[Rfam]
RNA sequence: AUGGAUUUCAGCUCUUUUAGUAUUUGUCCAGCAGGUUAUUUUAAAUUUUAUAUAUUAGAUGACCCAC
Numbered sequence: 001a002u003g004g005a006u007u008u009c010a011g012c013u014c015u016u017u018u019a020g021u022a023u024u025u026g027u028c029c030a031g032c033a034g035g036u037u038a039u040u041u042u043a044a045a046u047u048u049u050a051u052a053u054a055u056u057a058g059a060u061g062a063c064c065c066a067c
Stems, first nucleotide, its partner, number of pairs: 034064008044056003
This 67-nucleotide RNA sequence from Opisthocomus hoazin belongs to the Rfam family "U7 small nuclear RNA". The organism belongs to Opisthocomus, within Eukaryota. The match comes from Rfam's covariance-model search (41 bits).